A member of the RNA family "RAGATH-18 RNA", 74 nucleotides long.
The base pairs follow the family's consensus structure, which is taken from published work.

[Rfam]
Nucleotides: 074
Base pairs, nucleotide, nucleotide: 001072002071003070004069005068009061010060011059012058013057022056024054030049031048032047
Number, partner (000 for none) and nucleotide at each position: 001072c002071c003070u004069u005068u006000g007000g008000a009061g010060u011059g012058c013057g014000a015000u016000a017000u018000c019000a020000a021000a022056c023000a024054u025000u026000a027000g028000u029000a030049g031048c032047u033000c034000g035000a036000a037000c038000g039000a040000a041000a042000g043000u044000a045000a046000g047032g048031g049030c050000g051000a052000g053000g054024a055000c056022g057013c058012g059011c060010a061009c062000g063000u064000u065000g066000a067000a068005a069004a070003a071002g072001g073000a074000a